[Rfam]
Nucleotides: 202
Base pairs, nucleotide, nucleotide: 020084021083022082023081024080025079026078093124094123095122096121097120101113102112103111104110125143126142127141128140129139130138147192149190150189151188152187153186161178162177163176164175165174166173167172
Number, partner (000 for none) and nucleotide at each position: 001000a002000g003000a004000a005000a006000u007000c008000c009000a010000a011000u012000a013000g014000c015000g016000c017000c018000a019000g020084a021083a022082c023081u024080u025079g026078c027000g028000c029000a030000g031000g032000c033000u034000g035000c036000g037000g038000a039000g040000a041000u042000u043000c044000c045000u046000u047000c048000g049000a050000a051000u052000c053000c054000u055000c056000c057000a058000g059000g060000g061000u062000u063000c064000a065000g066000g067000g068000a069000a070000u071000a072000a073000a074000g075000c076000c077000g078026g079025c080024a081023a082022g083021u084020u085000g086000a087000c088000g089000a090000g091000g092000u093124g094123a095122a096121g097120g098000u099000g100000u101113u102112c103111g104110a105000a106000g107000u108000u109000u110104u111103c112102g113101g114000c115000g116000g117000g118000g119000a120097c121096c122095u123094u124093c125143c126142g127141g128140c129139a130138g131000c132000c133000a134000u135000c136000a137000a138130c139129u140128g141127c142126c143125g144000u145000a146000a147192g148000u149190u150189g151188g152187a153186c154000a155000g156000c157000a158000a159000a160000c161178c162177a163176u164175c165174c166173g167172g168000g169000u170000g171000a172167c173166c174165g175164g176163g177162u178161g179000a180000a181000c182000a183000a184000g185000a186153g187152u188151c189150c190149a191000u192147c193000u194000u195000g196000a197000u198000u199000c200000u201000a202000u